Shown here is a 178-nucleotide sequence from Meleagris gallopavo, a member of the family "TUC338". The family has 34 seed sequences and 75,615 matches in Rfam 15.1. Rfam's curators put it in the seed alignment.
RNA sequence: UUGACGGCUGUGGAGACUGAAGCCCUCUUUUUAUCCACAGAACAGGUACAGCACAGGCAGCGGGAGUGCAAGCUUCCCCCAGACUGCCCCACCAAUGUGCCUCAACCCUGACCUGAAGGGACCACUUCUAGGGAUGAGAGGGGAUUCAGUCUCCAUGCUCAUUCAAUUCUUGGCCUCU
Numbered sequence: 001u002u003g004a005c006g007g008c009u010g011u012g013g014a015g016a017c018u019g020a021a022g023c024c025c026u027c028u029u030u031u032u033a034u035c036c037a038c039a040g041a042a043c044a045g046g047u048a049c050a051g052c053a054c055a056g057g058c059a060g061c062g063g064g065a066g067u068g069c070a071a072g073c074u075u076c077c078c079c080c081a082g083a084c085u086g087c088c089c090c091a092c093c094a095a096u097g098u099g100c101c102u103c104a105a106c107c108c109u110g111a112c113c114u115g116a117a118g119g120g121a122c123c124a125c126u127u128c129u130a131g132g133g134a135u136g137a138g139a140g141g142g143g144a145u146u147c148a149g150u151c152u153c154c155a156u157g158c159u160c161a162u163u164c165a166a167u168u169c170u171u172g173g174c175c176u177c178u
Stems, first nucleotide, its partner, number of pairs: 002165003007158002011155011024143005030138006038110003048102001051100005062088002065085002113131003117127003